The record is a 508-nucleotide RNA sequence from Streptomyces sp. 150FB, which matches "Saccharopolyspora sRNA 350" in Rfam.
Rfam links the family to the GO term regulation of secondary metabolite biosynthetic process.
By type it is an antisense RNA.
The family has 2 seed sequences and 1,170 matches in Rfam 15.1.
A search with the family's covariance model found it, with a score of 180 bits.
The source organism's lineage runs through Bacteria, Bacillati, Kitasatosporales, Streptomycetaceae and Streptomyces.

RNA sequence: CGGGCGGUGUACUGCCAGGUCGCGUCGCGGUCCAGGAGCGCCUGGUCACCGAAGUACGCGCCGUCGGCGAGGACUUCGAGCACCGUCUCGUCCCCGUAGGGACCGGCGCCGACCUUCUCCACCUUGCCGUGUGCCAGCAGAUAGACCUUGUCCGAGACGUCGCCGGCCGUGGCCAGCGUCUGGCCGGCCGCGAACUCCUGCUGCUCGCAGCGGUUGGCCAGCUCGGUGAGCGCCUCCUCGUCGUCGUAAUCACGCAGCGCCGGCAAUUCCCCCAGCUCCGCGGGGAUGACCGUGACCCUCGUACCGGUCUGCACGAACGCGACGCGUCCGUCACCGACCGCGUAGCUGAGCCGGCGGUUCACCCGGUAGGUGCCACCCUGCACCUGCACCCACGGCAGCAUCCGCAGCAGCCACCGCGAGGUGGUCUCCUGCAUCUGCGGUACCGACUUGGUGGUGGUCGCCAGGUUCCGCGCGGCGGCCGUGCCCAGGCUCUGCUGAGGCGGCACUU
Numbered sequence: 001c002g003g004g005c006g007g008u009g010u011a012c013u014g015c016c017a018g019g020u021c022g023c024g025u026c027g028c029g030g031u032c033c034a035g036g037a038g039c040g041c042c043u044g045g046u047c048a049c050c051g052a053a054g055u056a057c058g059c060g061c062c063g064u065c066g067g068c069g070a071g072g073a074c075u076u077c078g079a080g081c082a083c084c085g086u087c088u089c090g091u092c093c094c095c096g097u098a099g100g101g102a103c104c105g106g107c108g109c110c111g112a113c114c115u116u117c118u119c120c121a122c123c124u125u126g127c128c129g130u131g132u133g134c135c136a137g138c139a140g141a142u143a144g145a146c147c148u149u150g151u152c153c154g155a156g157a158c159g160u161c162g163c164c165g166g167c168c169g170u171g172g173c174c175a176g177c178g179u180c181u182g183g184c185c186g187g188c189c190g191c192g193a194a195c196u197c198c199u200g201c202u203g204c205u206c207g208c209a210g211c212g213g214u215u216g217g218c219c220a221g222c223u224c225g226g227u228g229a230g231c232g233c234c235u236c237c238u239c240g241u242c243g244u245c246g247u248a249a250u251c252a253c254g255c256a257g258c259g260c261c262g263g264c265a266a267u268u269c270c271c272c273c274a275g276c277u278c279c280g281c282g283g284g285g286a287u288g289a290c291c292g293u294g295a296c297c298c299u300c301g302u303a304c305c306g307g308u309c310u311g312c313a314c315g316a317a318c319g320c321g322a323c324g325c326g327u328c329c330g331u332c333a334c335c336g337a338c339c340g341c342g343u344a345g346c347u348g349a350g351c352c353g354g355c356g357g358u359u360c361a362c363c364c365g366g367u368a369g370g371u372g373c374c375a376c377c378c379u380g381c382a383c384c385u386g387c388a389c390c391c392a393c394g395g396c397a398g399c400a401u402c403c404g405c406a407g408c409a410g411c412c413a414c415c416g417c418g419a420g421g422u423g424g425u426c427u428c429c430u431g432c433a434u435c436u437g438c439g440g441u442a443c444c445g446a447c448u449u450g451g452u453g454g455u456g457g458u459c460g461c462c463a464g465g466u467u468c469c470g471c472g473c474g475g476c477g478g479c480c481g482u483g484c485c486c487a488g489g490c491u492c493u494g495c496u497g498a499g500g501c502g503g504c505a506c507u508u
Stems, first nucleotide, its partner, number of pairs: 006390006016380001018328002022325002025322005031316002036312001038310001040308003045305001048302002051299001054233002057230001059228005065111004075102001077101001082097002085094001118221001122217002127212001130209001133205001135203003139199002143196002149192002154189001159184002161178002165174003235295002240290006250283002253280002256277003262269001329342003353377002356374002360372004391431002394428002397425001399423003403418003407415001437476002440473001443470001445468002447465006477507002480502003484499001486497003